[Rfam]
RNA: Streptomyces RNA 1601
Organism: Streptomyces jeddahensis
Nucleotides: 193
Base pairs, nucleotide, nucleotide: 004090005089006088007087008086009085012027013026028083029082030081031080032079034060035059037057038056039055040054041052042051062077063076064075065074066073067072092117093116094115095114096113099111100110101109102108124186125185126184127183128182129181130178132176136174137173138172141168142167143166145164146163147162148161149160
Number, partner (000 for none) and nucleotide at each position: 001000a002000a003000u004090g005089a006088c007087c008086g009085g010000u011000c012027g013026g014000a015000c016000a017000c018000c019000g020000a021000c022000g023000u024000g025000c026013c027012c028083g029082g030081c031080c032079c033000a034060c035059a036000a037057g038056u039055g040054g041052a042051g043000g044000c045000u046000c047000c048000g049000a050000a051042c052041u053000c054040c055039c056038a057037c058000c059035u060034g061000a062077c063076c064075g065074c066073c067072c068000u069000a070000g071000c072067g073066g074065g075064c076063g077062g078000c079032g080031g081030g082029u083028c084000a085009c086008c087007g088006g089005u090004c091000a092117g093116g094115c095114g096113a097000c098000g099111c100110g101109c102108c103000c104000u105000c106000g107000a108102g109101g110100c111099g112000u113096u114095c115094g116093c117092c118000c119000g120000a121000u122000g123000c124186g125185c126184c127183c128182c129181g130178c131000u132176g133000u134000c135000a136174c137173g138172c139000g140000a141168c142167g143166g144000u145164g146163c147162u148161c149160c150000g151000g152000u153000a154000g155000u156000g157000c158000a159000a160149g161148g162147a163146g164145c165000c166143c167142c168141g169000c170000a171000u172138g173137u174136g175000a176132u177000c178130g179000u180000c181129c182128g183127g184126g185125g186124c187000a188000u189000u190000u191000u192000u193000c